[Rfam]
RNA sequence: UUACUUCCUCCGUCCCAAAAUAUAAGAGCGUUUUUAACACUAGUGUAGUGUCAAAAACGCUCUUAUAUUAUGGGAUGGAGGGAGUAG
Numbered sequence: 001u002u003a004c005u006u007c008c009u010c011c012g013u014c015c016c017a018a019a020a021u022a023u024a025a026g027a028g029c030g031u032u033u034u035u036a037a038c039a040c041u042a043g044u045g046u047a048g049u050g051u052c053a054a055a056a057a058c059g060c061u062c063u064u065a066u067a068u069u070a071u072g073g074g075a076u077g078g079a080g081g082g083a084g085u086a087g
Base pairs, nucleotide, nucleotide: 003085004084005083007081008080009079010078011077013075014074015073016072017071019069020068021067022066023065024064025063026062027061028060029059030058031057032056033055034054035053037051038050039049040048041047
RNA: MIR1120/MIR1122 microRNA precursor family